RNA sequence: AGCAAUAGAAUAGGCUUCAAAGGGUCGGUCGGCUACCUCUCUAUAGAAGGGAGGGAUGCCUUGUGACAGUGUUCGAAGCAAUGAUGGUUAUGCUAACCUUUGGUUCGCUAAUCGUAGCGCUGCUGUCCAAUAAACGCAAAUAGACCGCCCCCGUAGCAAGGAAUGCGGUCUAUUUGUCUUAGCCCCUACUUGUGAAGCCAACCGCCCUUAAAAGCGGCUAUUGUGCACUGGGAGUCGUGUUGAUGCACGGCUC
Numbered sequence: 001a002g003c004a005a006u007a008g009a010a011u012a013g014g015c016u017u018c019a020a021a022g023g024g025u026c027g028g029u030c031g032g033c034u035a036c037c038u039c040u041c042u043a044u045a046g047a048a049g050g051g052a053g054g055g056a057u058g059c060c061u062u063g064u065g066a067c068a069g070u071g072u073u074c075g076a077a078g079c080a081a082u083g084a085u086g087g088u089u090a091u092g093c094u095a096a097c098c099u100u101u102g103g104u105u106c107g108c109u110a111a112u113c114g115u116a117g118c119g120c121u122g123c124u125g126u127c128c129a130a131u132a133a134a135c136g137c138a139a140a141u142a143g144a145c146c147g148c149c150c151c152c153g154u155a156g157c158a159a160g161g162a163a164u165g166c167g168g169u170c171u172a173u174u175u176g177u178c179u180u181a182g183c184c185c186c187u188a189c190u191u192g193u194g195a196a197g198c199c200a201a202c203c204g205c206c207c208u209u210a211a212a213a214g215c216g217g218c219u220a221u222u223g224u225g226c227a228c229u230g231g232g233a234g235u236c237g238u239g240u241u242g243a244u245g246c247a248c249g250g251c252u253c
Stems, first nucleotide, its partner, number of pairs: 001224001004222003008218001011201001013199004018156001020154001022152003028145003036055002039053004065127007078093003103118003202217004232253009

BsrG: a 253-nucleotide sequence from Paenibacillus albidus. The source organism's lineage runs through Bacteria, Bacillati, Bacillota, Caryophanales and Paenibacillus. Rfam classes the family as a small RNA. Its family is annotated with autolysis and toxin activity in the Gene Ontology. A reference for the family is Saito et al. (2008), "Novel small RNA-encoding genes in the intergenic regions of Bacillus subtilis", Gene.